[Rfam]
RNA: Flavo-1 RNA
Organism: Bacteroidota bacterium
RNA sequence: AUCUAGCCGCGAUUGCAGUGGCACCCUGCCGGGCGGUAACAGGUAUAUCCGGCAGCCUUUGAUUUUUACAGCCAGGCAGGUACAACGUAAAGCGCGCCAUCUG
Numbered sequence: 001a002u003c004u005a006g007c008c009g010c011g012a013u014u015g016c017a018g019u020g021g022c023a024c025c026c027u028g029c030c031g032g033g034c035g036g037u038a039a040c041a042g043g044u045a046u047a048u049c050c051g052g053c054a055g056c057c058u059u060u061g062a063u064u065u066u067u068a069c070a071g072c073c074a075g076g077c078a079g080g081u082a083c084a085a086c087g088u089a090a091a092g093c094g095c096g097c098c099a100u101c102u103g
Stems, first nucleotide, its partner, number of pairs: 009095003013091002018086002023081003027078004032073003